Small nucleolar RNA SNORA65: a 129-nucleotide RNA sequence from Octodon degus. The family has 14 seed sequences and 1,089 matches in Rfam 15.1. The family is grouped with related families in Rfam's "SNORA65 clan". Gene Ontology terms of the family: RNA processing and nucleolus. NCBI's taxonomy places the organism under Eukaryota, Euteleostomi, Dipnotetrapodomorpha, Tetrapoda, Octodon.
RNA sequence: CCCACCACUGCACAUGACCAGUUCUCUAUUGGCUGGUUCAAUCCAGUGGUGAGCUGCUAGUAACCCCAGCUUAGGAAACAGGGUUGUUCUUCAUGUGGGCAACUCUGUGCCAAAAGCAUGGGAACAGCC
Numbered sequence: 001c002c003c004a005c006c007a008c009u010g011c012a013c014a015u016g017a018c019c020a021g022u023u024c025u026c027u028a029u030u031g032g033c034u035g036g037u038u039c040a041a042u043c044c045a046g047u048g049g050u051g052a053g054c055u056g057c058u059a060g061u062a063a064c065c066c067c068a069g070c071u072u073a074g075g076a077a078a079c080a081g082g083g084u085u086g087u088u089c090u091u092c093a094u095g096u097g098g099g100c101a102a103c104u105c106u107g108u109g110c111c112a113a114a115a116g117c118a119u120g121g122g123a124a125c126a127g128c129c
Base pairs, nucleotide, nucleotide: 005049006048007047008046009045010044017037018036019035020034021033022031065122066121067120068119069117070116071115072114074111075110079107080106081105082104083103084102087099088098089097
The base pairs follow the family's consensus structure, which was predicted with RNAalifold.